RNA sequence: GAAGACCCUGUUGAGCUUGACUCUAGUCUGGCACUGUGAAGAGACAUGAGAGGUGUAGAAUAAGUGGGAGGCUUCGGCCGCCGGUGAAAUACCACUACUCUUAUCGUUUUUUCACUUACCCGGUGAGGCGGGGAGGCGAGCCCCGAGCGGGCUCUCGCUUCUGGUGUCAAGCGCCCGGCACCCGCCGGGCGUGACCCGCUCCGGGGACAGUGGCAGGUGGGGAGUUUGACUGGGGCGGUACACCUGUCAAACUGUAACGCAGGUGUCCUAAGGCGAGCUCAGGGAGGACAGAAACCUCCCGUGGAGCAGAAGGGCAAAAGCUCGCUUGAUCUUGAUUUUCAGUAUGAAUACAGACCGUGAAAGCGGGGCCUCACGAUCCUUCUGACUUUUUGGGUUUUAAGCAGGAGGUGUCAGAAAAGUUACAGCCUUAUUAAACGCAGAGUAGUUCUGGCCCGGAAGCAGGGUUCAUACAUCAUCACUUAAAGACCCGAUAGCAGUAAUCUGGGGGCACCAGAAGAAUAUAUUGUAUUCCAGUGGGGGUGGUGCCAGCCCAUGCACACACCCCCUCUGGACCCGCCCCUAUUAAGGAUUAACUUUUCA
Numbered sequence: 001g002a003a004g005a006c007c008c009u010g011u012u013g014a015g016c017u018u019g020a021c022u023c024u025a026g027u028c029u030g031g032c033a034c035u036g037u038g039a040a041g042a043g044a045c046a047u048g049a050g051a052g053g054u055g056u057a058g059a060a061u062a063a064g065u066g067g068g069a070g071g072c073u074u075c076g077g078c079c080g081c082c083g084g085u086g087a088a089a090u091a092c093c094a095c096u097a098c099u100c101u102u103a104u105c106g107u108u109u110u111u112u113c114a115c116u117u118a119c120c121c122g123g124u125g126a127g128g129c130g131g132g133g134a135g136g137c138g139a140g141c142c143c144c145g146a147g148c149g150g151g152c153u154c155u156c157g158c159u160u161c162u163g164g165u166g167u168c169a170a171g172c173g174c175c176c177g178g179c180a181c182c183c184g185c186c187g188g189g190c191g192u193g194a195c196c197c198g199c200u201c202c203g204g205g206g207a208c209a210g211u212g213g214c215a216g217g218u219g220g221g222g223a224g225u226u227u228g229a230c231u232g233g234g235g236c237g238g239u240a241c242a243c244c245u246g247u248c249a250a251a252c253u254g255u256a257a258c259g260c261a262g263g264u265g266u267c268c269u270a271a272g273g274c275g276a277g278c279u280c281a282g283g284g285a286g287g288a289c290a291g292a293a294a295c296c297u298c299c300c301g302u303g304g305a306g307c308a309g310a311a312g313g314g315c316a317a318a319a320g321c322u323c324g325c326u327u328g329a330u331c332u333u334g335a336u337u338u339u340c341a342g343u344a345u346g347a348a349u350a351c352a353g354a355c356c357g358u359g360a361a362a363g364c365g366g367g368g369c370c371u372c373a374c375g376a377u378c379c380u381u382c383u384g385a386c387u388u389u390u391u392g393g394g395u396u397u398u399a400a401g402c403a404g405g406a407g408g409u410g411u412c413a414g415a416a417a418a419g420u421u422a423c424a425g426c427c428u429u430a431u432u433a434a435a436c437g438c439a440g441a442g443u444a445g446u447u448c449u450g451g452c453c454c455g456g457a458a459g460c461a462g463g464g465u466u467c468a469u470a471c472a473u474c475a476u477c478a479c480u481u482a483a484a485g486a487c488c489c490g491a492u493a494g495c496a497g498u499a500a501u502c503u504g505g506g507g508g509c510a511c512c513a514g515a516a517g518a519a520u521a522u523a524u525u526g527u528a529u530u531c532c533a534g535u536g537g538g539g540g541u542g543g544u545g546c547c548a549g550c551c552c553a554u555g556c557a558c559a560c561a562c563c564c565c566c567u568c569u570g571g572a573c574c575c576g577c578c579c580c581u582a583u584u585a586a587g588g589a590u591u592a593a594c595u596u597u598u599c600a
Base pairs, nucleotide, nucleotide: 008425009424010423012422014421015420016419017418018417020225021224022223023222027217028216029215030214032212033211036115037114038113039112040111041110042109043108044107045106046104047103048102049101050100051099052098063096064095065094066093067092070079071078119205120204121203122202123201129198130197131196132195138154139153140152141151142150171192172191173190174189175188176187177186228241229239230238231237242264243263244262245261246260247259267368268367273325274324275323276322277321278320279305280304282300283299284298285297286296287295306315307314330354331353332352335349336348337347338346356365357364358363379407380406381405382404383403384402387401388400389399

The family of this 600-nucleotide part of an RNA from Oreochromis aureus is "Eukaryotic large subunit ribosomal RNA".
On this family, see Yusupov et al., Science 2001: "Crystal structure of the ribosome at 5.5 A resolution".
A search with the family's covariance model found it, with a score of 2325 bits.